[Rfam]
RNA sequence: GAAAUACAGCUGACGGUGGAUACCUAGACACGCAGAGGCGAAGAAGGACGUGGCGACCGACGAAAAGCUUCGGGGAGCUGGCAGCAAGCACUGAGCCGAAGAUAUCCGAAUGGGGCAACCCCCUUGUACAGCCUGUUGAAUCCAUAGACAGGUAUGAGCCAACCCAGCCAACUGAAACAUCUUAGUAGCUGGAGGAAAAGAAAUCAAACGAGAUUCUCCCAGUAGUGGUGAGCGAAAGGAGAACAGCCUAAACCAGAGUACAAGUAUUCUGGGGUAGUGGGACAGCGAGAUGGAAGCACUAGACUAGACGAAACGAUUGACAAAUCGUACCAAAGAGGGUGAUAGUCCCGUAGUCGAAAGUUGAAGUGCUACUAGCUGAAUCCCGAGUAGCUAGGGACACGGGAAAUCCCUAGUGAAUCAGCCGAGACCACUCGGUAAGGCUAAAUACUACUGCGUGAGCGAUAGAGCAACAGUACCGCGAGGGAAAGGUGAAAAGAACCCCGAUAAGGGGAGUGAAAUAGAACAUGAAACCGUCAGUUGACAAG
Number, nucleotide and partner (000 for none) at each position: 001g000002a000003a000004a000005u000006a000007c540008a539009g538010c537011u536012g535013a534014c533015g532016g531017u000018g000019g000020a000021u000022a000023c489024c488025u000026a000027g460028a000029c457030a456031c455032g454033c453034a452035g451036a449037g448038g159039c158040g000041a000042a000043g000044a000045a000046g107047g106048a105049c062050g061051u060052g000053g000054c000055g000056a000057c000058c000059g000060a051061c050062g049063a000064a000065a000066a000067g000068c101069u100070u099071c098072g097073g096074g000075g000076a000077g089078c088079u087080g000081g000082c000083a000084g000085c000086a000087a079088g078089c077090a000091c000092u000093g000094a000095g000096c073097c072098g071099a070100a069101g068102a000103u000104a000105u048106c047107c046108g000109a000110a000111u000112g121113g120114g119115g000116c000117a000118a000119c114120c113121c112122c000123c000124u000125u000126g000127u000128a000129c156130a155131g153132c152133c151134u150135g149136u148137u147138g000139a000140a000141u000142c000143c000144a000145u000146a000147g137148a136149c135150a134151g133152g132153u131154a000155u130156g129157a000158g039159c038160c000161a000162a000163c194164c192165c191166a190167g189168c188169c000170a000171a000172c000173u000174g181175a180176a000177a000178c000179a000180u175181c174182u000183u000184a000185g000186u000187a000188g168189c167190u166191g165192g164193a000194g163195g000196a000197a000198a000199a000200g000201a000202a000203a000204u211205c210206a000207a000208a000209c000210g205211a204212g000213a000214u445215u242216c241217u240218c239219c238220c000221a000222g000223u000224a000225g233226u232227g000228g000229u000230g000231a000232g226233c225234g000235a000236a000237a000238g219239g218240a217241g216242a215243a000244c000245a442246g441247c440248c439249u000250a000251a000252a000253c272254c271255a270256g269257a268258g267259u266260a000261c000262a000263a000264g000265u000266a259267u258268u257269c256270u255271g254272g253273g000274g000275u000276a000277g000278u000279g384280g383281g382282a000283c378284a377285g376286c375287g000288a000289g000290a000291u000292g000293g000294a000295a370296g369297c368298a367299c366300u365301a000302g362303a361304c360305u359306a000307g355308a354309c353310g000311a000312a000313a328314c327315g326316a325317u324318u000319g000320a000321c000322a000323a000324a317325u316326c315327g314328u313329a000330c000331c335332a000333a000334a000335g331336a000337g349338g348339g347340u000341g000342a000343u000344a000345g000346u000347c339348c338349c337350g000351u000352a000353g309354u308355c307356g000357a000358a000359a305360g304361u303362u302363g000364a000365a300366g299367u298368g297369c296370u295371a000372c000373u000374a000375g286376c285377u284378g283379a000380a000381u000382c281383c280384c279385g000386a000387g000388u000389a000390g414391c413392u412393a411394g410395g409396g408397a407398c000399a000400c000401g000402g000403g000404a000405a000406a000407u397408c396409c395410c394411u393412a392413g391414u390415g000416a000417a000418u000419c000420a000421g436422c435423c434424g433425a432426g000427a000428c000429c000430a000431c000432u425433c424434g423435g422436u421437a000438a000439g248440g247441c246442u245443a000444a000445a214446u000447a000448c037449u036450a000451c035452u034453g033454c032455g031456u030457g029458a000459g000460c027461g000462a000463u000464a000465g000466a000467g000468c000469a000470a000471c000472a000473g000474u000475a000476c483477c482478g000479c000480g000481a000482g477483g476484g000485a000486a000487a000488g024489g023490u000491g000492a000493a000494a000495a000496g000497a000498a000499c511500c510501c509502c508503g000504a000505u000506a000507a000508g502509g501510g500511g499512a000513g000514u000515g000516a000517a000518a000519u000520a000521g000522a000523a000524c000525a000526u000527g000528a000529a000530a000531c016532c015533g014534u013535c012536a011537g010538u009539u008540g007541a000542c000543a000544a000545g000
Bacterial large subunit ribosomal RNA: a 545-nucleotide part of an RNA from Chroococcidiopsis thermalis. The match comes from Rfam's covariance-model search (2697 bits). The family has 102 seed sequences and 51,934 matches in Rfam 15.1.